[Rfam]
RNA sequence: CCCUUCUGCAUUAACAGAAGUCUGCUAUAAUUGUGUGAUCCGGUUUUUCUGUUUCAUGCAAUAAUGCUAGUAGAGUAAUGCGCGGAAGGAGAUUAAUGUGCACUACACUGAAAAUGAGAUGUGGUUGAACCUCUUUCUUAAUGUUCAUUGGCCAUUGUCUCAAGGUGAAGUGCUAUACUU
Numbered sequence: 001c002c003c004u005u006c007u008g009c010a011u012u013a014a015c016a017g018a019a020g021u022c023u024g025c026u027a028u029a030a031u032u033g034u035g036u037g038a039u040c041c042g043g044u045u046u047u048u049c050u051g052u053u054u055c056a057u058g059c060a061a062u063a064a065u066g067c068u069a070g071u072a073g074a075g076u077a078a079u080g081c082g083c084g085g086a087a088g089g090a091g092a093u094u095a096a097u098g099u100g101c102a103c104u105a106c107a108c109u110g111a112a113a114a115u116g117a118g119a120u121g122u123g124g125u126u127g128a129a130c131c132u133c134u135u136u137c138u139u140a141a142u143g144u145u146c147a148u149u150g151g152c153c154a155u156u157g158u159c160u161c162a163a164g165g166u167g168a169a170g171u172g173c174u175a176u177a178c179u180u
Base pairs, nucleotide, nucleotide: 021074023072024071025070026069027068030065031064032063033062036056037055041051042050043049100173101172102171103170104169106167107166122151124149126147127146128145129144